[Rfam]
Nucleotides: 076
Stems, first nucleotide, its partner, number of pairs: 015044003021076002024073004028040003048065006
Number, partner (000 for none) and nucleotide at each position: 001000g002000a003000u004000g005000g006000c007000a008000a009000g010000c011000u012000u013000g014000a015044g016043g017042c018000g019000a020000u021076a022075g023000c024073a025072g026071a027070a028040g029039c030038a031000c032000u033000c034000a035000u036000g037000c038030u039029g040028c041000a042017g043016c044015c045000u046000g047000u048065c049064a050063g051062g052061u053060u054000c055000c056000a057000g058000c059000a060053a061052a062051u063050c064049u065048g066000u067000g068000a069000a070027u071026u072025c073024u074000a075022c076021u
Annotation
Mammalian CPEB3 ribozyme: a 76-nucleotide sequence from Alligator mississippiensis. Rfam 15.1 lists 5,706 matches to the family in 197 species. NCBI's taxonomy places the organism under Eukaryota, Metazoa, Bilateria, Teleostomi, Alligator. The family's consensus secondary structure is taken from published work.